[Rfam]
RNA sequence: UGGAAGAUAUAGCAUUAGAUAUAUAGUGACUUUGGUCUUAGUGUAGACGAGUCCUUGAAAAUAAAGGAGCAAUAACCAAUUUCUUGUUUCAUCAAAAGUGCAGUAUUGCUCCCUU
Numbered sequence: 001u002g003g004a005a006g007a008u009a010u011a012g013c014a015u016u017a018g019a020u021a022u023a024u025a026g027u028g029a030c031u032u033u034g035g036u037c038u039u040a041g042u043g044u045a046g047a048c049g050a051g052u053c054c055u056u057g058a059a060a061a062u063a064a065a066g067g068a069g070c071a072a073u074a075a076c077c078a079a080u081u082u083c084u085u086g087u088u089u090c091a092u093c094a095a096a097a098g099u100g101c102a103g104u105a106u107u108g109c110u111c112c113c114u115u
Stems, first nucleotide, its partner, number of pairs: 008023004063115002066112009079099001081098002084095002
Rfam assigns this 115-nucleotide sequence from Nyssa sinensis to the family "Plastid-psbA-1 3UTR RNA". The family is grouped with related families in Rfam's "Plastid-psbA 3UTR RNA clan". A search with the family's covariance model found it, with a score of 71 bits. The family's consensus secondary structure was predicted with LocARNA.